Shown here is a 75-nucleotide RNA sequence from Methylococcus sp. EFPC2, a member of the family "c-di-GMP-I riboswitch aptamer". Its family is annotated with cyclic-di-GMP binding in the Gene Ontology.
RNA sequence: CAGCACCAUCGCCACACCCGUCGCAAGGCGGGGCCGGAAAGCCACGGGUCUUUUCAAGAUCGCCGGGCCGCCCUU
Numbered sequence: 001c002a003g004c005a006c007c008a009u010c011g012c013c014a015c016a017c018c019c020g021u022c023g024c025a026a027g028g029c030g031g032g033g034c035c036g037g038a039a040a041g042c043c044a045c046g047g048g049u050c051u052u053u054u055c056a057a058g059a060u061c062g063c064c065g066g067g068c069c070g071c072c073c074u075u
Stems, first nucleotide, its partner, number of pairs: 012037002017032006041068003045065003048060003